This 108-nucleotide RNA from Flagellimonas alvinocaridis belongs to the Rfam family "SAM riboswitch aptamer (S box leader)". It scores 75 bits against the family's covariance model. NCBI's taxonomy places the organism under Bacteria, Pseudomonadati, Bacteroidota, Flavobacteriia, Flagellimonas.

[Rfam]
RNA sequence: UAGUUAUCAAGAAAGGUGGAGGGAAUAGACCCUGUGAAGCCUUAGCAACCCUUGGCCCCUAGUGUCAAGAAGGUGCUACAUUCUAUCCCAGUAGGGAAUAGAUAACGA
Numbered sequence: 001u002a003g004u005u006a007u008c009a010a011g012a013a014a015g016g017u018g019g020a021g022g023g024a025a026u027a028g029a030c031c032c033u034g035u036g037a038a039g040c041c042u043u044a045g046c047a048a049c050c051c052u053u054g055g056c057c058c059c060u061a062g063u064g065u066c067a068a069g070a071a072g073g074u075g076c077u078a079c080a081u082u083c084u085a086u087c088c089c090a091g092u093a094g095g096g097a098a099u100a101g102a103u104a105a106c107g108a
Stems, first nucleotide, its partner, number of pairs: 001108001003106006013043005021032003026085004044077004049073002051069006081100001086097004